[Rfam]
RNA sequence: AAUAAUAUUUGGCAAAGCCAUUGAAAGAUGGUGACGCAAAGCUAAAGGGGCUAAGGUGGACUACCACUAUGCCAGCCAGUUGCGAGG
Numbered sequence: 001a002a003u004a005a006u007a008u009u010u011g012g013c014a015a016a017g018c019c020a021u022u023g024a025a026a027g028a029u030g031g032u033g034a035c036g037c038a039a040a041g042c043u044a045a046a047g048g049g050g051c052u053a054a055g056g057u058g059g060a061c062u063a064c065c066a067c068u069a070u071g072c073c074a075g076c077c078a079g080u081u082g083c084g085a086g087g
Base pairs, nucleotide, nucleotide: 012037013036017032018031019030020029021028022027040081041080042079043078047077048076049073050072051071056067057066058065059064
Source information: Shown here is an 87-nucleotide sequence from Natronincola peptidivorans, a member of the family "c-di-GMP-I riboswitch aptamer". The family's consensus secondary structure is taken from published work. The organism belongs to Natronincola, within Bacteria. A reference for the family is Weinberg et al. (2007), "Identification of 22 candidate structured RNAs in bacteria using the CMfinder comparative genomics pipeline", Nucleic Acids Res.